A member of the RNA family "FMN riboswitch aptamer (RFN element)" from Endobacter medicaginis, 162 nucleotides long. Rfam's curators write: The RFN element is a highly conserved domain that is found frequently in the 5'-untranslated regions of prokaryotic mRNAs that encode for flavin mononucleotide (FMN) biosynthesis and transport proteins. Lineage of the source: Bacteria > Pseudomonadati > Pseudomonadota > Acetobacteraceae > Endobacter.
RNA sequence: UGGUGUUCUCGGGGCGGGGUGCAAUUCCCCACCGGCGGUUAUUGCGGCGCCUGCGCCGCAUCAGCCCGCGAGCGCCCGACCGUCCUUUCGGGGAGGGUCGGGGUCAGCAGAUCCGGUGUGAUUCCGGAGCCGACGGUACAGUCCGGAAGAGAGAGAACACGG
Numbered sequence: 001u002g003g004u005g006u007u008c009u010c011g012g013g014g015c016g017g018g019g020u021g022c023a024a025u026u027c028c029c030c031a032c033c034g035g036c037g038g039u040u041a042u043u044g045c046g047g048c049g050c051c052u053g054c055g056c057c058g059c060a061u062c063a064g065c066c067c068g069c070g071a072g073c074g075c076c077c078g079a080c081c082g083u084c085c086u087u088u089c090g091g092g093g094a095g096g097g098u099c100g101g102g103g104u105c106a107g108c109a110g111a112u113c114c115g116g117u118g119u120g121a122u123u124c125c126g127g128a129g130c131c132g133a134c135g136g137u138a139c140a141g142u143c144c145g146g147a148a149g150a151g152a153g154a155g156a157a158c159a160c161g162g
Stems, first nucleotide, its partner, number of pairs: 003160008017029003031142002033132002035069004064130002072108002112128005134145003